[Rfam]
RNA sequence: AAAAUUUAAGAUGCGCACCUUCGUAUAUCCUCGAUAAUAUGGUUCGAGAGUCUCUACCGGGACACCGUAAAUGACCCGACUACGAAGGCAGUGUUCUAUAUU
Numbered sequence: 001a002a003a004a005u006u007u008a009a010g011a012u013g014c015g016c017a018c019c020u021u022c023g024u025a026u027a028u029c030c031u032c033g034a035u036a037a038u039a040u041g042g043u044u045c046g047a048g049a050g051u052c053u054c055u056a057c058c059g060g061g062a063c064a065c066c067g068u069a070a071a072u073g074a075c076c077c078g079a080c081u082a083c084g085a086a087g088g089c090a091g092u093g094u095u096c097u098a099u100a101u102u
Stems, first nucleotide, its partner, number of pairs: 018088008030048005058078004063073002

The family of this 102-nucleotide RNA sequence from Anoxybacillus flavithermus is "Purine riboswitch aptamer". Its family is annotated with purine nucleobase biosynthetic process in the Gene Ontology. A search with the family's covariance model found it, with a score of 88 bits.